[Rfam]
RNA sequence: AAGAGUUGGGGAACAUUCAACGCUGUCGGUGAGUUUGUGACUCAGAGAAACCAUCGAGUGUUGAGUGUACCCUUAAACUU
Numbered sequence: 001a002a003g004a005g006u007u008g009g010g011g012a013a014c015a016u017u018c019a020a021c022g023c024u025g026u027c028g029g030u031g032a033g034u035u036u037g038u039g040a041c042u043c044a045g046a047g048a049a050a051c052c053a054u055c056g057a058g059u060g061u062u063g064a065g066u067g068u069a070c071c072c073u074u075a076a077a078c079u080u
Stems, first nucleotide, its partner, number of pairs: 001080003006075001008073001014067009026057006033051004
RNA: mir-181 microRNA precursor family
Organism: Perca fluviatilis